[Rfam]
RNA sequence: GGAAAUUUGAGAGGAUCUGACCCUAGUACGAGAGGACCGGGUUGGACGGACCUCUGGUGUGCCAGUUGUUCUGCCAAGGGCAUGGCUGGUUGGCUACGUUCGGGAUGGAUAACCGCUGAAAGCAUCUAAGCGGGAAGCCGGCCUCGAGAUGAGAUUUCCGUACACCCUUGUGGUGUGUGAGGCUCCCAGGAGAUGACUGGGUUGAUAGGCCAGAUGUGGAAGCGCUGUAAGGUGUGGAGCUGACUGGUACUAAUAAGCCGAUG
Numbered sequence: 001g002g003a004a005a006u007u008u009g010a011g012a013g014g015a016u017c018u019g020a021c022c023c024u025a026g027u028a029c030g031a032g033a034g035g036a037c038c039g040g041g042u043u044g045g046a047c048g049g050a051c052c053u054c055u056g057g058u059g060u061g062c063c064a065g066u067u068g069u070u071c072u073g074c075c076a077a078g079g080g081c082a083u084g085g086c087u088g089g090u091u092g093g094c095u096a097c098g099u100u101c102g103g104g105a106u107g108g109a110u111a112a113c114c115g116c117u118g119a120a121a122g123c124a125u126c127u128a129a130g131c132g133g134g135a136a137g138c139c140g141g142c143c144u145c146g147a148g149a150u151g152a153g154a155u156u157u158c159c160g161u162a163c164a165c166c167c168u169u170g171u172g173g174u175g176u177g178u179g180a181g182g183c184u185c186c187c188a189g190g191a192g193a194u195g196a197c198u199g200g201g202u203u204g205a206u207a208g209g210c211c212a213g214a215u216g217u218g219g220a221a222g223c224g225c226u227g228u229a230a231g232g233u234g235u236g237g238a239g240c241u242g243a244c245u246g247g248u249a250c251u252a253a254u255a256a257g258c259c260g261a262u263g
Stems, first nucleotide, its partner, number of pairs: 001159008011145004017045007047102005055096003062089005067082006106140003113133005162176005178261001181259004185201005206252003209248005216240001222235005

Shown here is a 263-nucleotide part of an RNA from Leucobacter chromiisoli, a member of the family "Bacterial large subunit ribosomal RNA".